[Rfam]
RNA sequence: AUGUGGGGACGACCCCACCUCUCUGCAUUCCAUUGGGGACGGCCCCA
Number, nucleotide and partner (000 for none) at each position: 001a020002u000003g018004u017005g016006g015007g014008g013009a000010c000011g000012a000013c008014c007015c006016c005017a004018c003019c000020u001021c000022u000023c000024u000025g000026c000027a000028u000029u000030c000031c000032a000033u000034u047035g046036g045037g044038g043039a000040c000041g000042g000043c038044c037045c036046c035047a034

The family of this 47-nucleotide RNA from Marinobacterium iners is "Guanidine-II riboswitch aptamer (mini-ykkC)". Its family is annotated with regulation of gene expression in the Gene Ontology. NCBI's taxonomy places the organism under Bacteria, Pseudomonadati, Pseudomonadota, Oceanospirillales, Marinobacterium iners. The base pairs follow the family's consensus structure, which is taken from published work.